[Rfam]
RNA: mir-1421 microRNA precursor family
Organism: Ornithorhynchus anatinus
RNA sequence: CGGUGUGAGGACGUCGUACGUCAUGCAGAGUUGAUGGCGGAUUAUGUUGCAUUGCGUGCGACGUCCCUACACAGC
Number, nucleotide and partner (000 for none) at each position: 001c000002g000003g072004u071005g070006u069007g068008a000009g066010g065011a064012c063013g062014u061015c060016g059017u058018a057019c056020g055021u054022c000023a052024u051025g050026c049027a048028g000029a000030g000031u000032u000033g000034a000035u000036g000037g000038c000039g000040g000041a000042u000043u000044a000045u000046g000047u000048u027049g026050c025051a024052u023053u000054g021055c020056g019057u018058g017059c016060g015061a014062c013063g012064u011065c010066c009067c000068u007069a006070c005071a004072c003073a000074g000075c000